[Rfam]
Nucleotides: 296
Stems, first nucleotide, its partner, number of pairs: 001041002011020003025038003044294005050288002056283001058281003064273005070267001075266005081260007089253005100245002103242004107235002110233005116226001118224007125164003130159005137152006165171002173216005183208004191200003
Number, partner (000 for none) and nucleotide at each position: 001041c002040c003000u004000a005000u006000g007000a008000a009000u010000a011020u012019u013018c014000a015000g016000g017000c018013g019012g020011g021000g022000u023000g024000u025038c026037c027036c028000a029000a030000c031000u032000u033000c034000c035000c036027g037026g038025g039000a040002g041001g042000c043000u044294g045293a046292g047291g048290c049000u050288g051287g052000a053000g054000g055000a056283u057000c058281g059280c060279u061000u062000g063000a064273g065272c066271u067270c068269a069000c070267g071000a072000g073000u074000u075266c076265u077264g078263g079262g080000c081260u082259g083258c084257a085256g086255u087254g088000c089253g090252c091251u092250a093249u094000g095000c096000c097000g098000a099000u100245c101244g102000a103242g104241u105240g106239u107235c108234c109000g110233c111232a112231c113230u114229a115000a116226g117000u118224u119223c120222a121221g122220c123219a124218u125164c126163a127162a128000u129000a130159u131158g132157g133156u134155g135000a136000c137152u138151u139150c140149c141148c142147g143000g144000g145000a146000g147142u148141g149140g150139g151138g152137g153000a154000c155134c156133a157132c158131c159130a160000g161000c162127u163126u164125g165171c166170c167000u168000u169000a170166g171165g172000a173216g174215g175214g176213g177212u178000g179000a180000a181000c182000c183208g184207g185206c186205c187000c188000a189000g190000g191200u192199c193198g194000g195000a196000a197000a198193c199192g200191g201000a202000g203000c204000a205186g206185g207184u208183c209000a210000a211000a212177a213176c214175u215174c216173c217000c218124g219123u220122g221121c222120u223119g224118a225000u226116c227000a228000g229114u230113a231112g232111u233110g234108g235107g236000a237000u238000c239106g240105c241104g242103c243000c244101u245100g246000u247000a248000a249093a250092u251091a252090g253089c254087c255086a256085c257084u258083g259082u260081a261000c262079u263078c264077c265076a266075g267070c268000c269068u270067g271066g272065g273064c274000a275000a276000c277000a278000u279060a280059g281058c282000a283056a284000g285000a286000c287051c288050c289000u290048g291047u292046c293045u294044c295000u296000u